[Rfam]
RNA sequence: GCACAGCACUUUCACGAAGGAUCGUCCGGCACGUACCUGCCGGUGGAAGAGAGGAAC
Numbered sequence: 001g002c003a004c005a006g007c008a009c010u011u012u013c014a015c016g017a018a019g020g021a022u023c024g025u026c027c028g029g030c031a032c033g034u035a036c037c038u039g040c041c042g043g044u045g046g047a048a049g050a051g052a053g054g055a056a057c
Stems, first nucleotide, its partner, number of pairs: 009049006026043006
Notes:
Shown here is a 57-nucleotide sequence from Leucobacter tardus, a member of the family "msiK RNA". The family's consensus secondary structure is taken from published work. The family's RNA type in Rfam is cis-regulatory element. The organism belongs to Leucobacter, within Bacteria.